[Rfam]
RNA sequence: CGACCUCAGCUCAGGCGUGACGACCCGCUGAAUUUAAGCAUAUUACUAAGCGGAGGAAAAGAAACUAACAAGGAUUCCCUCAGUAGCGGCGAGCGAAGAGGGAGGAGCCCAGCGCCGAAUCCCCGCUCCGGGCACGGGGCGAGGGAAAUGUGGCGUACGGAAGACCGCUUCUCUCGGCGCGGGCCGGGGGCCCAAGUCCUUCUGAUGGAGGCUUAGCCCGUGGACGGUGUGAGGCCGGUAGCGGCCCCCGCCCCGCCGGGGUGCGGUUCUUCUCGGAGUCGGGUUGCUUGGGAAUGCAGCCCAAAGCGGGUGGUAAACUCCAUCUAAGGCUAAAUACCGGCACGAGACCGAUAGUCGACAAGUACCGUGAGGGAAAGUUGAAAAGAACUUUGAAGAGAGAGUUCAAGAGGGCGUGAAACCGUUAAGAGGUAAA
Numbered sequence: 001c002g003a004c005c006u007c008a009g010c011u012c013a014g015g016c017g018u019g020a021c022g023a024c025c026c027g028c029u030g031a032a033u034u035u036a037a038g039c040a041u042a043u044u045a046c047u048a049a050g051c052g053g054a055g056g057a058a059a060a061g062a063a064a065c066u067a068a069c070a071a072g073g074a075u076u077c078c079c080u081c082a083g084u085a086g087c088g089g090c091g092a093g094c095g096a097a098g099a100g101g102g103a104g105g106a107g108c109c110c111a112g113c114g115c116c117g118a119a120u121c122c123c124c125g126c127u128c129c130g131g132g133c134a135c136g137g138g139g140c141g142a143g144g145g146a147a148a149u150g151u152g153g154c155g156u157a158c159g160g161a162a163g164a165c166c167g168c169u170u171c172u173c174u175c176g177g178c179g180c181g182g183g184c185c186g187g188g189g190g191c192c193c194a195a196g197u198c199c200u201u202c203u204g205a206u207g208g209a210g211g212c213u214u215a216g217c218c219c220g221u222g223g224a225c226g227g228u229g230u231g232a233g234g235c236c237g238g239u240a241g242c243g244g245c246c247c248c249c250g251c252c253c254c255g256c257c258g259g260g261g262u263g264c265g266g267u268u269c270u271u272c273u274c275g276g277a278g279u280c281g282g283g284u285u286g287c288u289u290g291g292g293a294a295u296g297c298a299g300c301c302c303a304a305a306g307c308g309g310g311u312g313g314u315a316a317a318c319u320c321c322a323u324c325u326a327a328g329g330c331u332a333a334a335u336a337c338c339g340g341c342a343c344g345a346g347a348c349c350g351a352u353a354g355u356c357g358a359c360a361a362g363u364a365c366c367g368u369g370a371g372g373g374a375a376a377g378u379u380g381a382a383a384a385g386a387a388c389u390u391u392g393a394a395g396a397g398a399g400a401g402u403u404c405a406a407g408a409g410g411g412c413g414u415g416a417a418a419c420c421g422u423u424a425a426g427a428g429g430u431a432a433a
Stems, first nucleotide, its partner, number of pairs: 024055001025053005035042002065072002076103005086094002106331004113155005119149001120146004124141005160272002163268006179256005185250008196212001198211004219223001226236002281302007308325005365372002388399004